[Rfam]
Small nucleolar RNA snoR100: a 101-nucleotide RNA sequence from Rhododendron simsii. The source organism's lineage runs through Eukaryota, Viridiplantae, eudicotyledons, Rhodoreae and Rhododendron. It is annotated as an H/ACA-box small nucleolar RNA. Pairs were carried over by alignment from the consensus structure, which was predicted with WAR. Gene Ontology terms of the family: nucleolus and RNA processing.
RNA sequence: CAAACAACAGUAAUGUGCACUUAAAUUGAUUUGGGUCUCUAGGCCUGCCCUCUCUGAUGCCAUUUGGUUUUGAUUUGGGGGCAUGGUUCUACAACAAAACG
Numbered sequence: 001c002a003a004a005c006a007a008c009a010g011u012a013a014u015g016u017g018c019a020c021u022u023a024a025a026u027u028g029a030u031u032u033g034g035g036u037c038u039c040u041a042g043g044c045c046u047g048c049c050c051u052c053u054c055u056g057a058u059g060c061c062a063u064u065u066g067g068u069u070u071u072g073a074u075u076u077g078g079g080g081g082c083a084u085g086g087u088u089c090u091a092c093a094a095c096a097a098a099a100c101g
Stems, first nucleotide, its partner, number of pairs: 005017001007016002033084001035082003043074001045072001047068003
For this family Rfam cites "Experimental RNomics: identification of 140 candidates for small non-messenger RNAs in the plant Arabidopsis thaliana" (Marker et al., Curr Biol, 2002).